[Rfam]
RNA sequence: CUUUCCGAGGAGCGUUGCAAGGCACCUGCCACAGGUCCCCAGGCUCGGAACAUCGAACUGCAACCGCGCUCACCCGCA
Numbered sequence: 001c002u003u004u005c006c007g008a009g010g011a012g013c014g015u016u017g018c019a020a021g022g023c024a025c026c027u028g029c030c031a032c033a034g035g036u037c038c039c040c041a042g043g044c045u046c047g048g049a050a051c052a053u054c055g056a057a058c059u060g061c062a063a064c065c066g067c068g069c070u071c072a073c074c075c076g077c078a
Stems, first nucleotide, its partner, number of pairs: 003050006021038002024036004
The record is a 78-nucleotide RNA from Rhizobacter terrae, which matches "SAH (S-adenosyl-L-homocysteine) riboswitch aptamer" in Rfam.
The match comes from Rfam's covariance-model search (61 bits).
Gene Ontology terms of the family: S-adenosylhomocysteine metabolic process and regulation of gene expression.
The family's consensus secondary structure is taken from published work.